[Rfam]
RNA: U4atac minor spliceosomal RNA
RNA sequence: UACAUCCUUGUCUAGAGGAGCAUAAGUAUUCAAUGAACGUAUAGUGAGGGUACUGAUGCUGACACUAGUUAAAAAUUUUAACUGCAUCCGCGAGUAAGGUAUUUUAACGAAUAUCCACUCGUUUGCGAUGCAAUUUUUGAAAGCCUCUUUACUUCACAAGGGGCCA
Numbered sequence: 001u002a003c004a005u006c007c008u009u010g011u012c013u014a015g016a017g018g019a020g021c022a023u024a025a026g027u028a029u030u031c032a033a034u035g036a037a038c039g040u041a042u043a044g045u046g047a048g049g050g051u052a053c054u055g056a057u058g059c060u061g062a063c064a065c066u067a068g069u070u071a072a073a074a075a076u077u078u079u080a081a082c083u084g085c086a087u088c089c090g091c092g093a094g095u096a097a098g099g100u101a102u103u104u105u106a107a108c109g110a111a112u113a114u115c116c117a118c119u120c121g122u123u124u125g126c127g128a129u130g131c132a133a134u135u136u137u138u139g140a141a142a143g144c145c146u147c148u149u150u151a152c153u154u155c156a157c158a159a160g161g162g163g164c165c166a
Base pairs, nucleotide, nucleotide: 005019006018007017008016009015020059021058022057023056025054026053027052028051029050030049031048037045038044084131085130086129087128088127089125094118095117099114100113101112102111103110104109